[Rfam]
The record is a 73-nucleotide RNA from Propylenella binzhouense, which matches "tRNA" in Rfam. The base pairs follow the family's consensus structure, which is taken from published work. The family's RNA type in Rfam is transfer RNA.
RNA sequence: GCACCCUUCGUCUAGCGGUCCAGGACGCCGCCCUUUCACGGCGGAAACACGGGUUCGAGUCCCGUAGGGUGCA
Numbered sequence: 001g002c003a004c005c006c007u008u009c010g011u012c013u014a015g016c017g018g019u020c021c022a023g024g025a026c027g028c029c030g031c032c033c034u035u036u037c038a039c040g041g042c043g044g045a046a047a048c049a050c051g052g053g054u055u056c057g058a059g060u061c062c063c064g065u066a067g068g069g070u071g072c073a
Stems, first nucleotide, its partner, number of pairs: 001072007010026004028044005049065005
Dot-bracket structure: (((((((..((((.........)))).(((((.......)))))....(((((.......)))))))))))).